Shown here is a 72-nucleotide sequence from Ruminococcus sp. CAG:57, a member of the family "Fluoride riboswitch aptamer (crcB RNA motif)".
A search with the family's covariance model found it, with a score of 45 bits.
The family's consensus secondary structure is taken from published work.
RNA sequence: CUCAUAUCGGGGAAUGAUGUUCUCCCCUGGGAAACCUAAACCGCUUAUUAAGCUGAUGACUUCUGUUUUUUA
Numbered sequence: 001c002u003c004a005u006a007u008c009g010g011g012g013a014a015u016g017a018u019g020u021u022c023u024c025c026c027c028u029g030g031g032a033a034a035c036c037u038a039a040a041c042c043g044c045u046u047a048u049u050a051a052g053c054u055g056a057u058g059a060c061u062u063c064u065g066u067u068u069u070u071u072a
Stems, first nucleotide, its partner, number of pairs: 010026004016063002019060003043053003